Description
Shown here is a 149-nucleotide RNA from Pollutimonas bauzanensis, a member of the family "Group II catalytic intron D1-D4-7". Rfam 15.1 lists 1,296 matches to the family in 705 species. Pairs were carried over by alignment from the consensus structure. The match comes from Rfam's covariance-model search (120 bits). Lineage of the source: Bacteria > Pseudomonadota > Betaproteobacteria > Alcaligenaceae > Pollutimonas. Gene Ontology term of the family: Group II intron splicing.
[Rfam]
RNA sequence: CCUGAUGUUCCGUCAUCAGUAGCCUACCGGCACAUGCAGGACUGGUAACGGUCUUGUGUGAAGCUGCCGAGACAAUGUAGCUGGGCCUUCGGGCCGCACCGAUGCCGUGAGGCAAGGUGUUACCUGCGAGCAUCAAUGCGGUUACAGCG
Numbered sequence: 001c002c003u004g005a006u007g008u009u010c011c012g013u014c015a016u017c018a019g020u021a022g023c024c025u026a027c028c029g030g031c032a033c034a035u036g037c038a039g040g041a042c043u044g045g046u047a048a049c050g051g052u053c054u055u056g057u058g059u060g061a062a063g064c065u066g067c068c069g070a071g072a073c074a075a076u077g078u079a080g081c082u083g084g085g086c087c088u089u090c091g092g093g094c095c096g097c098a099c100c101g102a103u104g105c106c107g108u109g110a111g112g113c114a115a116g117g118u119g120u121u122a123c124c125u126g127c128g129a130g131c132a133u134c135a136a137u138g139c140g141g142u143u144a145c146a147g148c149g
Stems, first nucleotide, its partner, number of pairs: 002019006028069005033060012082096003086092002097119004105112002124141005